[Rfam]
RNA sequence: UCCAGCAGUAGGAAAGCCACUGACUAACGCACAUUGCGCUUGUUUUUGAUUCCACUGUGCGUGUGACAGCGGCUAACCUGCUUUUCGGACAUCACGUA
Numbered sequence: 001u002c003c004a005g006c007a008g009u010a011g012g013a014a015a016g017c018c019a020c021u022g023a024c025u026a027a028c029g030c031a032c033a034u035u036g037c038g039c040u041u042g043u044u045u046u047u048g049a050u051u052c053c054a055c056u057g058u059g060c061g062u063g064u065g066a067c068a069g070c071g072g073c074u075a076a077c078c079u080g081c082u083u084u085u086c087g088g089a090c091a092u093c094a095c096g097u098a
Base pairs, nucleotide, nucleotide: 005084007082008081009080010079011078012077015074016073017072018071020069021068022067024065025063026062028061029060030059031058032057033056035054036053
RNA: mir-210 microRNA precursor family